[Rfam]
RNA sequence: GGGGAUAAACGUGCGUGUAAUAAGCGAUUUGGACCCGGGUGCAAUUCCCGGCGGCUCCACCAAAACUUCAGACGUUAUCAUCUGGAAACAUGGGGCCGAUCAGGAUCGACAAGCGUGUAAAGACGUGGCUUUCUCUCGGUGUGGGCCUCCGCGAUCGGCCUUAUUGUAACUGCAAACGAUAACUUUGCACAGGAUGUUGCUGUCGCUGCGUAA
Numbered sequence: 001g002g003g004g005a006u007a008a009a010c011g012u013g014c015g016u017g018u019a020a021u022a023a024g025c026g027a028u029u030u031g032g033a034c035c036c037g038g039g040u041g042c043a044a045u046u047c048c049c050g051g052c053g054g055c056u057c058c059a060c061c062a063a064a065a066c067u068u069c070a071g072a073c074g075u076u077a078u079c080a081u082c083u084g085g086a087a088a089c090a091u092g093g094g095g096c097c098g099a100u101c102a103g104g105a106u107c108g109a110c111a112a113g114c115g116u117g118u119a120a121a122g123a124c125g126u127g128g129c130u131u132u133c134u135c136u137c138g139g140u141g142u143g144g145g146c147c148u149c150c151g152c153g154a155u156c157g158g159c160c161u162u163a164u165u166g167u168a169a170c171u172g173c174a175a176a177c178g179a180u181a182a183c184u185u186u187g188c189a190c191a192g193g194a195u196g197u198u199g200c201u202g203u204c205g206c207u208g209c210g211u212a213a
Stems, first nucleotide, its partner, number of pairs: 001136005013126004025115002029112003035051005052098007137151003
The record is a 213-nucleotide RNA from Asticcacaulis endophyticus, which matches "permuted transfer-messenger RNA" in Rfam.
Rfam describes the family as follows. Bacterial tmRNA, also known as 10Sa RNA or SsrA, is named for its dual tRNA and mRNA-like properties. Its role is to liberate the mRNA from a stalled ribosome.
A search with the family's covariance model found it, with a score of 136 bits.
By type it is a non-coding RNA gene.